Shown here is a 527-nucleotide part of an RNA from Allovahlkampfia spelaea, a member of the family "Eukaryotic small subunit ribosomal RNA".
RNA sequence: CGCUCGUAGUUGACCUAAGGACCAUAGGUUUGAAUUCGGACUUACCCGUCUUAUGUAGCUCCGUGUUAUAACGGGGUUGCGGGGCGCGUGGUUGGUACCACGGCAUCCUGCCCCAUGGAUUUCAUCCUUGGGUGUUCAGGUGUGGGUUCUACCUGUGGUACGAUCCUUGCCAAUGGUUCGCCAUUGGUAAAGGCCUUAUGGUACAACUGUAAACAAAUCAGAGUGCUCAAAGCAGGCAUUGUUAAUGGGGAUUUAUCCUCAGUUUUGCUUGAAUGAUUUAGCAUGGGAUUGUCUUGGAGCCGUGAAUAGUGCCUAUUCGUUCUCGGGUAGGUUGCUGUUCACUGGCGCUUGUAAUGUGAAGCAGGGAGAGGGCUCAAGUACUAUGGUGCUAGAGGUGAAAUUUAGAUACCAGCAUAUGACUUUCUGAUGCGAAAGCUGUUAUUGUCCAAUACACUUCUUUCGAUCAGGGACGAAAGUUAGGGGAUCGAAGAUGAUUAGAUACCGUCGUAGUCCUAACUAUAAACGAU
Numbered sequence: 001c002g003c004u005c006g007u008a009g010u011u012g013a014c015c016u017a018a019g020g021a022c023c024a025u026a027g028g029u030u031u032g033a034a035u036u037c038g039g040a041c042u043u044a045c046c047c048g049u050c051u052u053a054u055g056u057a058g059c060u061c062c063g064u065g066u067u068a069u070a071a072c073g074g075g076g077u078u079g080c081g082g083g084g085c086g087c088g089u090g091g092u093u094g095g096u097a098c099c100a101c102g103g104c105a106u107c108c109u110g111c112c113c114c115a116u117g118g119a120u121u122u123c124a125u126c127c128u129u130g131g132g133u134g135u136u137c138a139g140g141u142g143u144g145g146g147u148u149c150u151a152c153c154u155g156u157g158g159u160a161c162g163a164u165c166c167u168u169g170c171c172a173a174u175g176g177u178u179c180g181c182c183a184u185u186g187g188u189a190a191a192g193g194c195c196u197u198a199u200g201g202u203a204c205a206a207c208u209g210u211a212a213a214c215a216a217a218u219c220a221g222a223g224u225g226c227u228c229a230a231a232g233c234a235g236g237c238a239u240u241g242u243u244a245a246u247g248g249g250g251a252u253u254u255a256u257c258c259u260c261a262g263u264u265u266u267g268c269u270u271g272a273a274u275g276a277u278u279u280a281g282c283a284u285g286g287g288a289u290u291g292u293c294u295u296g297g298a299g300c301c302g303u304g305a306a307u308a309g310u311g312c313c314u315a316u317u318c319g320u321u322c323u324c325g326g327g328u329a330g331g332u333u334g335c336u337g338u339u340c341a342c343u344g345g346c347g348c349u350u351g352u353a354a355u356g357u358g359a360a361g362c363a364g365g366g367a368g369a370g371g372g373c374u375c376a377a378g379u380a381c382u383a384u385g386g387u388g389c390u391a392g393a394g395g396u397g398a399a400a401u402u403u404a405g406a407u408a409c410c411a412g413c414a415u416a417u418g419a420c421u422u423u424c425u426g427a428u429g430c431g432a433a434a435g436c437u438g439u440u441a442u443u444g445u446c447c448a449a450u451a452c453a454c455u456u457c458u459u460u461c462g463a464u465c466a467g468g469g470a471c472g473a474a475a476g477u478u479a480g481g482g483g484a485u486c487g488a489a490g491a492u493g494a495u496u497a498g499a500u501a502c503c504g505u506c507g508u509a510g511u512c513c514u515a516a517c518u519a520u521a522a523a524c525g526a527u
Base pairs, nucleotide, nucleotide: 002471004469005468009464010463011462364458365457366456367455370447371446372445373444377421378420382416383415384414385413387411388410392403393402394401426437429436430435476517477516478515479514480513481512486510490506491505492504493503
Pairs were carried over by alignment from the consensus structure, which is taken from published work. Its family is annotated with ribosome and structural constituent of ribosome in the Gene Ontology.